The family of this 158-nucleotide RNA from Streptomyces sp. ISL-1 is "Streptomyces sRNA scr5239". The family's consensus secondary structure is taken from published work. The family's RNA type in Rfam is small RNA. Gene Ontology terms of the family: mRNA binding and negative regulation of translation.

RNA sequence: CCUCCAUCCUCCCCGCACAGGAGGGUGGAACGAGGUACCCGGCGCUCUCUGCCCUGACUGCGCCGAGACCUCCGAUACGGCCGCGCGGGACCGCACACCUGCCGGCCGGAGCAGCUCCGGGCUGCGGUGCCGGACGGGCUGAGGGUCCCGUCAGGCGC
Numbered sequence: 001c002c003u004c005c006a007u008c009c010u011c012c013c014c015g016c017a018c019a020g021g022a023g024g025g026u027g028g029a030a031c032g033a034g035g036u037a038c039c040c041g042g043c044g045c046u047c048u049c050u051g052c053c054c055u056g057a058c059u060g061c062g063c064c065g066a067g068a069c070c071u072c073c074g075a076u077a078c079g080g081c082c083g084c085g086c087g088g089g090a091c092c093g094c095a096c097a098c099c100u101g102c103c104g105g106c107c108g109g110a111g112c113a114g115c116u117c118c119g120g121g122c123u124g125c126g127g128u129g130c131c132g133g134a135c136g137g138g139c140u141g142a143g144g145g146u147c148c149c150g151u152c153a154g155g156c157g158c
Base pairs, nucleotide, nucleotide: 003029004028005027006026008024009023010022011021012020032072033071034070035069036068040065041064042063044061045060046057047056078108079107080106081105082104083103087100088099089098114128115127116126118124119123132152134151135150136149137148138147